[Rfam]
RNA sequence: AGAGUUGGCGAGGCGGUUGCAGAUUAGUUUUUCAACUAGUUUGAGGAAAGUCCGGGCUUCCGAAAGACCAGACUUGCUGGAUAACUCCCAGUGCGUGCGAGCGUGAGGAUAGUGCCACAGAAAAAUACCGCCUUUUCAAUCAACAAUGAACAAUUAUCAAUUGUCAGUUUUUACUGUUCGUUGAUAAUUGGUAAUUGAUAAUUGGCAAAGGUAAGGGUGCAAAGGUGAGGUAAGAGCUCACCAGCAGCAUCGAGAGGUGCUGGCUCGGUAAACCCCGGUUGGAAGCAAGGUGAGAGGAACUAUGGUUGGUCUUUUACCGGUUCCGCUUUAUGAGAGCCGCUUGAGGCGUUUGGUAACAAGCGUCCCAGAUAGAUAAUCGCCCUUUAAAUGUAGAAGAUUUCUACAUUUUUAGAACAGAACCCGGCUUAUGUCCGACUCUCUUC
Numbered sequence: 001a002g003a004g005u006u007g008g009c010g011a012g013g014c015g016g017u018u019g020c021a022g023a024u025u026a027g028u029u030u031u032u033c034a035a036c037u038a039g040u041u042u043g044a045g046g047a048a049a050g051u052c053c054g055g056g057c058u059u060c061c062g063a064a065a066g067a068c069c070a071g072a073c074u075u076g077c078u079g080g081a082u083a084a085c086u087c088c089c090a091g092u093g094c095g096u097g098c099g100a101g102c103g104u105g106a107g108g109a110u111a112g113u114g115c116c117a118c119a120g121a122a123a124a125a126u127a128c129c130g131c132c133u134u135u136u137c138a139a140u141c142a143a144c145a146a147u148g149a150a151c152a153a154u155u156a157u158c159a160a161u162u163g164u165c166a167g168u169u170u171u172u173a174c175u176g177u178u179c180g181u182u183g184a185u186a187a188u189u190g191g192u193a194a195u196u197g198a199u200a201a202u203u204g205g206c207a208a209a210g211g212u213a214a215g216g217g218u219g220c221a222a223a224g225g226u227g228a229g230g231u232a233a234g235a236g237c238u239c240a241c242c243a244g245c246a247g248c249a250u251c252g253a254g255a256g257g258u259g260c261u262g263g264c265u266c267g268g269u270a271a272a273c274c275c276c277g278g279u280u281g282g283a284a285g286c287a288a289g290g291u292g293a294g295a296g297g298a299a300c301u302a303u304g305g306u307u308g309g310u311c312u313u314u315u316a317c318c319g320g321u322u323c324c325g326c327u328u329u330a331u332g333a334g335a336g337c338c339g340c341u342u343g344a345g346g347c348g349u350u351u352g353g354u355a356a357c358a359a360g361c362g363u364c365c366c367a368g369a370u371a372g373a374u375a376a377u378c379g380c381c382c383u384u385u386a387a388a389u390g391u392a393g394a395a396g397a398u399u400u401c402u403a404c405a406u407u408u409u410u411a412g413a414a415c416a417g418a419a420c421c422c423g424g425c426u427u428a429u430g431u432c433c434g435a436c437u438c439u440c441u442u443c
Stems, first nucleotide, its partner, number of pairs: 001439008011429001012381007020043009048427003052424005057285004066313002071280003075277002077091004092106001093104004107275002112273002114269003128216002130212006137205001224242006244264001245262007289338003293327002296324003304318003308314001345364008
This 443-nucleotide RNA from Rivularia sp. PCC 7116 belongs to the Rfam family "Bacterial RNase P class A". A search with the family's covariance model found it, with a score of 249 bits. NCBI's taxonomy places the organism under Bacteria, Bacillati, Nostocales, Rivulariaceae, Rivularia.